A member of the RNA family "U7 small nuclear RNA" from Oncorhynchus kisutch, 57 nucleotides long. Lineage of the source: Eukaryota > Chordata > Craniata > Euteleosteomorpha > Oncorhynchus. Animal histone pre-mRNAs are spliced by a different mechanism than nuclear pre-mRNAs and self-splicing introns. This processing involves the U7 snRNP, which contains only one RNA species: U7. The 5' end of U7 RNA is thought to base-pair to a conserved spacer element downstream of the cleavage site in histone pre-mRNA. This family contains a number of annotated U7 pseudogenes.
RNA sequence: AAGAGCAGAAGGUUUUUUAGUAUUUCUCCAGUAGGUUUCCUCAAGGAGAAAGCCCCC
Numbered sequence: 001a002a003g004a005g006c007a008g009a010a011g012g013u014u015u016u017u018u019a020g021u022a023u024u025u026c027u028c029c030a031g032u033a034g035g036u037u038u039c040c041u042c043a044a045g046g047a048g049a050a051a052g053c054c055c056c057c
Stems, first nucleotide, its partner, number of pairs: 034054005040048003